[Rfam]
RNA sequence: AUGCCUUAAAUUUAUGAGUAAGGAAAAUAAUGAUUCGGGGUCAUGCCCGAAUCCGCACUGCUAAUGUGAGACGAAUUUUUGAGUGGGUAAAGUUUGCCUCUAAGGUGACCCGCCUACUUUGUGAGAUGCCUGGGAGUCGUGAUCUGCCUG
Numbered sequence: 001a002u003g004c005c006u007u008a009a010a011u012u013u014a015u016g017a018g019u020a021a022g023g024a025a026a027a028u029a030a031u032g033a034u035u036c037g038g039g040g041u042c043a044u045g046c047c048c049g050a051a052u053c054c055g056c057a058c059u060g061c062u063a064a065u066g067u068g069a070g071a072c073g074a075a076u077u078u079u080u081g082a083g084u085g086g087g088u089a090a091a092g093u094u095u096g097c098c099u100c101u102a103a104g105g106u107g108a109c110c111c112g113c114c115u116a117c118u119u120u121g122u123g124a125g126a127u128g129c130c131u132g133g134g135a136g137u138c139g140u141g142a143u144c145u146g147c148c149u150g
Base pairs, nucleotide, nucleotide: 004023005022006021007020008019032053033052034051035050036049037048038047039046054070056068057067058066084150085149086148087147088146091145092144094142095141096140097139100134101133103131104130105129106128107127109125111123112122113121

Description
The family of this 150-nucleotide RNA sequence from Carlito syrichta is "U12 minor spliceosomal RNA". The match comes from Rfam's covariance-model search (129 bits). Clan: U2 clan. The literature on the family includes a 2002 paper in Mol Cell by Otake et al., "The divergent U12-type spliceosome is required for pre-mRNA splicing and is essential for development in Drosophila". NCBI's taxonomy places the organism under Eukaryota, Gnathostomata, Amniota, Theria, Carlito.